The family of this 87-nucleotide RNA from Aquarana catesbeiana is "mir-541 microRNA precursor family".
[Rfam]
RNA sequence: AAGUUCUGGUAUAGAUUUUGAGGGGGACCCCAUGCCAAAAUUUCAAAAAAUGGCGUGGGGUCCCCCAAAAUCCAUACCAGACCCUUA
Numbered sequence: 001a002a003g004u005u006c007u008g009g010u011a012u013a014g015a016u017u018u019u020g021a022g023g024g025g026g027a028c029c030c031c032a033u034g035c036c037a038a039a040a041u042u043u044c045a046a047a048a049a050a051u052g053g054c055g056u057g058g059g060g061u062c063c064c065c066c067a068a069a070a071u072c073c074a075u076a077c078c079a080g081a082c083c084c085u086u087a
Stems, first nucleotide, its partner, number of pairs: 001086003005081005014072007022065004030058006
The base pairs follow the family's consensus structure, which was predicted with RNAalifold. The organism belongs to Aquarana, within Eukaryota. The literature on the family includes a 2010 paper in Mol Hum Reprod by Ahn et al., "MicroRNA transcriptome in the newborn mouse ovaries determined by massive parallel sequencing". The family has 8 seed sequences and 125 matches in Rfam 15.1.